Notes:
The family of this 192-nucleotide RNA sequence from Streptomyces alkaliphilus is "Actinobacteria sRNA Ms_IGR-5". Rfam classes the family as a small RNA. Lineage of the source: Bacteria > Actinomycetota > Kitasatosporales > Streptomycetaceae > Streptomyces.
[Rfam]
RNA sequence: CGAGAAGGGAGGUGGUUCGGCAGAUGAGUGACAACCGGACGCGUGAGGUGGCUGCGGUCUAGCGACCCGCCCCGCACUUCGUGCGGCGCCGGCGUCGCCGGCCCAUUCCCAGCAGUCCACCCGACCCGCAGGCCGCCGGUACGUCCGGCCGGCUCCCCCUCCGGGGGGACCACGGCCUGCGGGUCGUCCGCU
Numbered sequence: 001c002g003a004g005a006a007g008g009g010a011g012g013u014g015g016u017u018c019g020g021c022a023g024a025u026g027a028g029u030g031a032c033a034a035c036c037g038g039a040c041g042c043g044u045g046a047g048g049u050g051g052c053u054g055c056g057g058u059c060u061a062g063c064g065a066c067c068c069g070c071c072c073c074g075c076a077c078u079u080c081g082u083g084c085g086g087c088g089c090c091g092g093c094g095u096c097g098c099c100g101g102c103c104c105a106u107u108c109c110c111a112g113c114a115g116u117c118c119a120c121c122c123g124a125c126c127c128g129c130a131g132g133c134c135g136c137c138g139g140u141a142c143g144u145c146c147g148g149c150c151g152g153c154u155c156c157c158c159c160u161c162c163g164g165g166g167g168g169a170c171c172a173c174g175g176c177c178u179g180c181g182g183g184u185c186g187u188c189c190g191c192u
Stems, first nucleotide, its partner, number of pairs: 012055005057103001059101002062098002065095002067092003122186013135153006
The match comes from Rfam's covariance-model search (68 bits).